[Rfam]
RNA sequence: UGGGAUAUGGCCAAGUGGUAAGGCAUCGGUUUUUGGUACCGUGCAUCGCUGGUUCGAAUCCAGCUAUCCCAG
Numbered sequence: 001u002g003g004g005a006u007a008u009g010g011c012c013a014a015g016u017g018g019u020a021a022g023g024c025a026u027c028g029g030u031u032u033u034u035g036g037u038a039c040c041g042u043g044c045a046u047c048g049c050u051g052g053u054u055c056g057a058a059u060c061c062a063g064c065u066a067u068c069c070c071a072g
Base pairs, nucleotide, nucleotide: 001071002070003069004068005067006066007065010024011023012022027041028040029039030038048064049063050062051061052060

Rfam assigns this 72-nucleotide RNA sequence from Weissella ceti to the family "tRNA". Gene Ontology term of the family: triplet codon-amino acid adaptor activity. The match comes from Rfam's covariance-model search (62 bits). Rfam describes the family as follows. Transfer RNA (tRNA) molecules are approximately 80 nucleotides in length. Their secondary structure includes four short double-helical elements and three loops (D, anti-codon, and T loops). Further hydrogen bonds mediate the characteristic L-shaped molecular structure. tRNAs have two regions of fundamental functional importance: the anti-codon, which is responsible for specific mRNA codon recognition, and the 3' end, to which the tRNAs corresponding amino acid is attached (by aminoacyl-tRNA synthetases). tRNAs cope with the degeneracy of the genetic code in two manners: having more than one tRNA (with a specific anti-codon) for a particular amino acid; and 'wobble' base-pairing, i.e. permitting non-standard base-pairing at the 3rd anti-codon position. Pairs were carried over by alignment from the consensus structure, which is taken from published work.